[Rfam]
RNA sequence: CCUCUCUCAGCUCCGCUUAAUCAUACUGUGUGUGUGUGCUUGGCGUAUUUUCAGAGAGAGAGAGAGGAAGGCCCUCCUAAUGCACGGCAGACUGGCCCCAAGUGGCCUCUCUGUUCCUAGGAGCGCAACAUUC
Number, nucleotide and partner (000 for none) at each position: 001c000002c064003u063004c062005u061006c060007u059008c058009a000010g000011c056012u055013c054014c000015g052016c000017u000018u000019a041020a040021u000022c038023a037024u036025a035026c034027u000028g000029u000030g000031u000032g000033u000034g026035u025036g024037u023038g022039c000040u020041u019042g000043g000044c000045g000046u000047a000048u000049u000050u000051u000052c015053a000054g013055a012056g011057a000058g008059a007060g006061a005062g004063a003064g002065a000066g000067g000068a000069a000070g000071g000072c000073c000074c123075u122076c121077c120078u119079a000080a118081u000082g116083c000084a000085c000086g000087g000088c000089a112090g111091a110092c000093u000094g107095g106096c105097c104098c000099c000100a000101a000102g000103u000104g097105g096106c095107c094108u000109c000110u091111c090112u089113g000114u000115u000116c082117c000118u080119a078120g077121g076122a075123g074124c000125g000126c000127a000128a000129c000130a000131u000132u000133c000
The family of this 133-nucleotide sequence from Ursus americanus is "Small nucleolar RNA SNORA64/SNORA10 family". It scores 105 bits against the family's covariance model. Its family is annotated with nucleolus and RNA processing in the Gene Ontology. This family belongs to the H/ACA class of small nucleolar RNAs (snoRNAs) which act as guides in the the modification of uridines to pseudouridines. This family includes the human snoRNAs U64 and ACA10 and mouse MBI-29.